[Rfam]
Record summary: The record is a 179-nucleotide RNA from Bucorvus abyssinicus, which matches "Small Cajal body specific RNA 16" in Rfam. Gene Ontology terms of the family: nucleolus and RNA processing.
RNA sequence: CAGGGCUGGGGACAGGCUGCCUGGUGGCAGGGCCAGCAGGCCCAGCCUUGUACCCGCCAGCCUCACCUGUGCCCGAGAUCAACUCCCUGGCGGGCUCCACGCUGGGUCCAUCCUGUGCAGUAACAGGUGUGAGCAUUCAUGCAGCGUUUUGAUGGUCAUGUAUGAUACUGCAUACAACA
Numbered sequence: 001c002a003g004g005g006c007u008g009g010g011g012a013c014a015g016g017c018u019g020c021c022u023g024g025u026g027g028c029a030g031g032g033c034c035a036g037c038a039g040g041c042c043c044a045g046c047c048u049u050g051u052a053c054c055c056g057c058c059a060g061c062c063u064c065a066c067c068u069g070u071g072c073c074c075g076a077g078a079u080c081a082a083c084u085c086c087c088u089g090g091c092g093g094g095c096u097c098c099a100c101g102c103u104g105g106g107u108c109c110a111u112c113c114u115g116u117g118c119a120g121u122a123a124c125a126g127g128u129g130u131g132a133g134c135a136u137u138c139a140u141g142c143a144g145c146g147u148u149u150u151g152a153u154g155g156u157c158a159u160g161u162a163u164g165a166u167a168c169u170g171c172a173u174a175c176a177a178c179a
Stems, first nucleotide, its partner, number of pairs: 003074004008068003015062004019057002024053002026047003030043001032041003086106007114174009124164002130158003134154004141148001
The organism belongs to Bucorvus, within Eukaryota. The match comes from Rfam's covariance-model search (121 bits). By type it is a small Cajal body RNA.